A member of the RNA family "RNA anti-toxin A" from Streptococcus sp. zg-36, 83 nucleotides long.
The match comes from Rfam's covariance-model search (62 bits).
Lineage of the source: Bacteria > Bacillota > Bacilli > Lactobacillales > Streptococcus.

RNA sequence: UAAUGAAGAUAUAAAAGGAGCUGGACGGUAAUCCAACUCCCACGUAGAACCGUUUAAGACGGUGACCGCAUAAAUAUAAAUUA
Numbered sequence: 001u002a003a004u005g006a007a008g009a010u011a012u013a014a015a016a017g018g019a020g021c022u023g024g025a026c027g028g029u030a031a032u033c034c035a036a037c038u039c040c041c042a043c044g045u046a047g048a049a050c051c052g053u054u055u056a057a058g059a060c061g062g063u064g065a066c067c068g069c070a071u072a073a074a075u076a077u078a079a080a081u082u083a
Base pairs, nucleotide, nucleotide: 022035023034024033025032049063050062051061052060053059054058
Its family is annotated with negative regulation of translation and mRNA binding in the Gene Ontology. By type it is an antitoxin RNA.